[Rfam]
Shown here is a 71-nucleotide RNA sequence from Mytilus galloprovincialis, a member of the family "mir-9/mir-79 microRNA precursor family". The literature on the family includes a 2002 paper in Curr Biol by Lagos-Quintana et al., "Identification of tissue-specific microRNAs from mouse".
RNA sequence: UUGUUUAGCCUUUUGGAUAUAUACCUGUAUGCUAUUAUAGCAUACAGGUAUAUAUCCAAAAGGCUAAACAA
Number, nucleotide and partner (000 for none) at each position: 001u071002u070003g069004u068005u067006u000007a065008g064009c063010c062011u061012u060013u059014u058015g057016g056017a055018u054019a053020u052021a051022u050023a049024c048025c047026u046027g000028u044029a043030u042031g041032c040033u039034a000035u000036u000037a000038u000039a033040g032041c031042a030043u029044a028045c000046a026047g025048g024049u023050a022051u021052a020053u019054a018055u017056c016057c015058a014059a013060a012061a011062g010063g009064c008065u007066a000067a005068a004069c003070a002071a001